[Rfam]
RNA sequence: CGUUUUACCUGGUCAAUAUUAGAGUCGCUUUGCGCCAAAUACUUCUAAUACUGUCAGGUAAUGACGAU
Numbered sequence: 001c002g003u004u005u006u007a008c009c010u011g012g013u014c015a016a017u018a019u020u021a022g023a024g025u026c027g028c029u030u031u032g033c034g035c036c037a038a039a040u041a042c043u044u045c046u047a048a049u050a051c052u053g054u055c056a057g058g059u060a061a062u063g064a065c066g067a068u
Base pairs, nucleotide, nucleotide: 001066002065003064004063005061006060007059008058009057010056011055014053015052017050018049019048020047022046024044

Rfam assigns this 68-nucleotide RNA from Panagrellus redivivus to the family "mir-236 microRNA precursor family". The source organism's lineage runs through Eukaryota, Bilateria, Protostomia, Nematoda and Panagrellus. The sequence is in the family's curated seed alignment. Rfam 15.1 lists 52 matches to the family in 50 species. The base pairs follow the family's consensus structure, which was predicted with RNAalifold. Rfam links the family to the GO terms RISC complex and miRNA-mediated post-transcriptional gene silencing.